Potassium channel RNA editing signal: a 114-nucleotide RNA sequence from Conger conger.
[Rfam]
RNA sequence: GUGGGAUACGGGGACAUGUGCCCGGUGACUAUCGGUGGCAAAAUAGUGGGCUCUUUGUGCGCUAUCGCCGGCGUGCUGACCAUCGCUCUGCCGGUUCCCGUCAUAGUCUCGAAU
Numbered sequence: 001g002u003g004g005g006a007u008a009c010g011g012g013g014a015c016a017u018g019u020g021c022c023c024g025g026u027g028a029c030u031a032u033c034g035g036u037g038g039c040a041a042a043a044u045a046g047u048g049g050g051c052u053c054u055u056u057g058u059g060c061g062c063u064a065u066c067g068c069c070g071g072c073g074u075g076c077u078g079a080c081c082a083u084c085g086c087u088c089u090g091c092c093g094g095u096u097c098c099c100g101u102c103a104u105a106g107u108c109u110c111g112a113a114u
Stems, first nucleotide, its partner, number of pairs: 001114002005110001008107002011104001013102003018097001020095002037077004049063003
Dot-bracket structure: ((..(..((.(.(((..(.((...............((((........(((.........)))..........))))................)).)..))).).))..)..))